[Rfam]
RNA sequence: CUGCGGCGCCGAAGUCGAAGCUCGGCGCCGUAGUUUUAGUAGGAAUCCCAGCUCACAAAGCCGGGAUUUCACUCUGAAAAUUUGAUGACCAGCAGGAGCAUCCGGGUUGUGCCCGGGAACUAUCUGCGCGGUCCGUAGUGGCUUUACCUGAGUCGCUGCUUCAGAACUUGGGAAGUCAUGCUGCGGUUUCCACGCUGGUGGUGUCUCCUUAUCGAAGGUGACCA
Numbered sequence: 001c002u003g004c005g006g007c008g009c010c011g012a013a014g015u016c017g018a019a020g021c022u023c024g025g026c027g028c029c030g031u032a033g034u035u036u037u038a039g040u041a042g043g044a045a046u047c048c049c050a051g052c053u054c055a056c057a058a059a060g061c062c063g064g065g066a067u068u069u070c071a072c073u074c075u076g077a078a079a080a081u082u083u084g085a086u087g088a089c090c091a092g093c094a095g096g097a098g099c100a101u102c103c104g105g106g107u108u109g110u111g112c113c114c115g116g117g118a119a120c121u122a123u124c125u126g127c128g129c130g131g132u133c134c135g136u137a138g139u140g141g142c143u144u145u146a147c148c149u150g151a152g153u154c155g156c157u158g159c160u161u162c163a164g165a166a167c168u169u170g171g172g173a174a175g176u177c178a179u180g181c182u183g184c185g186g187u188u189u190c191c192a193c194g195c196u197g198g199u200g201g202u203g204u205c206u207c208c209u210u211a212u213c214g215a216a217g218g219u220g221a222c223c224a
Stems, first nucleotide, its partner, number of pairs: 001033011013022002043069004048064002051061003094209005099203002101117006120201005126195003130191002133186002137182003140177005147172002151168003156164002

A member of the RNA family "sucA-II RNA" from Stutzerimonas stutzeri, 224 nucleotides long.
The family's consensus secondary structure is taken from published work.
It is annotated as a cis-regulatory element.
The sequence is in the family's curated seed alignment.